[Rfam]
RNA sequence: UCGGCGUUAAGGAAUCGUUAAGCAUUACAAUCUAUAAAUUGAACAUCCAGUUUUCUGGAUUCUUACCAAGUGGUUUGGCCACUUUGUUUGACGCCUCCCUGUUAGACUCCUGAGAGCCGCCAUGUUUCGCGGCUCUUUUUUU
Numbered sequence: 001u002c003g004g005c006g007u008u009a010a011g012g013a014a015u016c017g018u019u020a021a022g023c024a025u026u027a028c029a030a031u032c033u034a035u036a037a038a039u040u041g042a043a044c045a046u047c048c049a050g051u052u053u054u055c056u057g058g059a060u061u062c063u064u065a066c067c068a069a070g071u072g073g074u075u076u077g078g079c080c081a082c083u084u085u086g087u088u089u090g091a092c093g094c095c096u097c098c099c100u101g102u103u104a105g106a107c108u109c110c111u112g113a114g115a116g117c118c119g120c121c122a123u124g125u126u127u128c129g130c131g132g133c134u135c136u137u138u139u140u141u142u
Stems, first nucleotide, its partner, number of pairs: 001042004005012001019034002022031001046059004068084006090103004112137009122127001
A member of the RNA family "Alphaproteobacterial sRNA BjrC1505" from Phyllobacterium sp. YR620, 142 nucleotides long. It scores 82 bits against the family's covariance model. Taxonomically the source falls in Phyllobacterium (Bacteria, Pseudomonadati, Alphaproteobacteria, Phyllobacteriaceae).